[Rfam]
RNA sequence: AGCACGCGGUGUAACUGACGGAAGUGGAAUCGACCACGGGGAGCAUCGCCUCUGAAUUGCCGACCGUCUGGGCGCACCGU
Numbered sequence: 001a002g003c004a005c006g007c008g009g010u011g012u013a014a015c016u017g018a019c020g021g022a023a024g025u026g027g028a029a030u031c032g033a034c035c036a037c038g039g040g041g042a043g044c045a046u047c048g049c050c051u052c053u054g055a056a057u058u059g060c061c062g063a064c065c066g067u068c069u070g071g072g073c074g075c076a077c078c079g080u
Stems, first nucleotide, its partner, number of pairs: 004051001006049007015040002017068005024037004058074004
Shown here is an 80-nucleotide RNA sequence from Pseudoflavonifractor sp. An184, a member of the family "ZMP/ZTP riboswitch aptamer (pfl RNA motif)".
Gene Ontology terms of the family: one-carbon metabolic process and regulation of purine nucleotide biosynthetic process.
The base pairs follow the family's consensus structure, which is taken from published work.